[Rfam]
RNA sequence: GGCCUGAUCGCGUCGCCGGUGCGGCGGCCGGUCCGCAAAACCGGAUCCCGGAAACGGGCGAGGGAUUCGACUUCCCGUCAGGCC
Numbered sequence: 001g002g003c004c005u006g007a008u009c010g011c012g013u014c015g016c017c018g019g020u021g022c023g024g025c026g027g028c029c030g031g032u033c034c035g036c037a038a039a040a041c042c043g044g045a046u047c048c049c050g051g052a053a054a055c056g057g058g059c060g061a062g063g064g065a066u067u068c069g070a071c072u073u074c075c076c077g078u079c080a081g082g083c084c
Base pairs, nucleotide, nucleotide: 001084002083003082004081005080006079007078008077011026012025013024014023015022016021028044029043030042031041032040047058048057049056050055062076063075064074065073
Shown here is an 84-nucleotide RNA from Asanoa hainanensis, a member of the family "Selenocysteine transfer RNA". Pairs were carried over by alignment from the consensus structure, which is taken from published work. The source organism's lineage runs through Bacteria, Actinomycetota, Actinomycetes, Micromonosporales and Asanoa.